RNA sequence: AUCCGUGUGGGCCGGGUUGUAGUUGACGAAGGUGAACCCCCGGCACUGGUCGAUGAUGUGGAACAGAGGGUUCCAGUCGAAAAGCGGCCUGCGAUCCGCCGGCAGCAUGUUGACGACGAACAUCUUGCCCGAGGCGAUCAUGUUCACGCGGCUG
Numbered sequence: 001a002u003c004c005g006u007g008u009g010g011g012c013c014g015g016g017u018u019g020u021a022g023u024u025g026a027c028g029a030a031g032g033u034g035a036a037c038c039c040c041c042g043g044c045a046c047u048g049g050u051c052g053a054u055g056a057u058g059u060g061g062a063a064c065a066g067a068g069g070g071u072u073c074c075a076g077u078c079g080a081a082a083a084g085c086g087g088c089c090u091g092c093g094a095u096c097c098g099c100c101g102g103c104a105g106c107a108u109g110u111u112g113a114c115g116a117c118g119a120a121c122a123u124c125u126u127g128c129c130c131g132a133g134g135c136g137a138u139c140a141u142g143u144u145c146a147c148g149c150g151g152c153u154g
Stems, first nucleotide, its partner, number of pairs: 002035002006032001008030001011027001013025003039055001041052004064154003068149001071081003086147001087143002090140002096134002100131003103127003107123002110119003
Shown here is a 154-nucleotide sequence from Jannaschia aquimarina, a member of the family "Ruegeria cis2 sRNA". The family's consensus secondary structure was predicted with RNAfold. The literature on the family includes a 2016 paper in Front Microbiol by Rivers et al., "Experimental Identification of Small Non-Coding RNAs in the Model Marine Bacterium Ruegeria pomeroyi DSS-3". Rfam links the family to the GO term regulation of gene expression. Rfam classes the family as a small RNA. A search with the family's covariance model found it, with a score of 59 bits.